Source information:
The family of this 167-nucleotide RNA from Triticum turgidum is "MIR2118 microRNA precursor family". The base pairs follow the family's consensus structure, which was predicted with RNAalifold. Rfam links the family to the GO terms miRNA-mediated post-transcriptional gene silencing and RISC complex. A search with the family's covariance model found it, with a score of 111 bits. Rfam 15.1 lists 2,377 matches to the family in 45 species. On this family, see Xue et al., Nucleic Acids Res 2009: "Characterization and expression profiles of miRNAs in rice seeds".

RNA sequence: AGAAUAGUGAAAAGGAAGCCAUGACUUUCUCAGAGCGGUGGGCAUGGGAACAUGGAGGAAAGCCUAGAUUUCUUGGCCACUUAAUUUAGGAGCAAAGAUUGUUUUGUGUUUUCCUGAUGCCUCCCAUGCCUAUAGUUCUUAGGUGUUCCUUCCUUUUCCUAUUUGCU
Numbered sequence: 001a002g003a004a005u006a007g008u009g010a011a012a013a014g015g016a017a018g019c020c021a022u023g024a025c026u027u028u029c030u031c032a033g034a035g036c037g038g039u040g041g042g043c044a045u046g047g048g049a050a051c052a053u054g055g056a057g058g059a060a061a062g063c064c065u066a067g068a069u070u071u072c073u074u075g076g077c078c079a080c081u082u083a084a085u086u087u088a089g090g091a092g093c094a095a096a097g098a099u100u101g102u103u104u105u106g107u108g109u110u111u112u113c114c115u116g117a118u119g120c121c122u123c124c125c126a127u128g129c130c131u132a133u134a135g136u137u138c139u140u141a142g143g144u145g146u147u148c149c150u151u152c153c154u155u156u157u158c159c160u161a162u163u164u165g166c167u
Stems, first nucleotide, its partner, number of pairs: 009158005015152003023148002028143003032139005039132011051119003055115001057114007